[Rfam]
RNA sequence: UCGCCCUUUCAAGGUUGAUGCAGUGCUUUAAGAAGCUAACACAGAAGGGUAAAGGAAACCUCCAUAUGACGCAGACAAGAGAUUGCAAAACUCCUCUUUGGAUCCUAUCUGGAGUUACAGCU
Numbered sequence: 001u002c003g004c005c006c007u008u009u010c011a012a013g014g015u016u017g018a019u020g021c022a023g024u025g026c027u028u029u030a031a032g033a034a035g036c037u038a039a040c041a042c043a044g045a046a047g048g049g050u051a052a053a054g055g056a057a058a059c060c061u062c063c064a065u066a067u068g069a070c071g072c073a074g075a076c077a078a079g080a081g082a083u084u085g086c087a088a089a090a091c092u093c094c095u096c097u098u099u100g101g102a103u104c105c106u107a108u109c110u111g112g113a114g115u116u117a118c119a120g121c122u
Base pairs, nucleotide, nucleotide: 003050004049005048006047007046008045009044014040015039016038017037019035021032058116060114061113062112063111064110072100073099074098075097077095079093080092081091083090084089
RNA: Small nucleolar RNA SNORA26
Organism: Marmota marmota